[Rfam]
RNA sequence: UCAGCACCUACACCCAAGGGUCACUAUUUAUUGUAGUAGUGUCUCAAACACGGGUGCUAACAGCAAACCUCAUCGCCUUUGGAGAACUUCCUGUGCCCUUCAAAGCAAAUUUAGAGGUUCUACACAC
Numbered sequence: 001u002c003a004g005c006a007c008c009u010a011c012a013c014c015c016a017a018g019g020g021u022c023a024c025u026a027u028u029u030a031u032u033g034u035a036g037u038a039g040u041g042u043c044u045c046a047a048a049c050a051c052g053g054g055u056g057c058u059a060a061c062a063g064c065a066a067a068c069c070u071c072a073u074c075g076c077c078u079u080u081g082g083a084g085a086a087c088u089u090c091c092u093g094u095g096c097c098c099u100u101c102a103a104a105g106c107a108a109a110u111u112u113a114g115a116g117g118u119u120c121u122a123c124a125c126a127c
Base pairs, nucleotide, nucleotide: 003058004057005056006055007054008053009052019044020043022041023040024039025038026037027036028035067118068117069116070115071114077105078104079103080102081101082100083099084098087095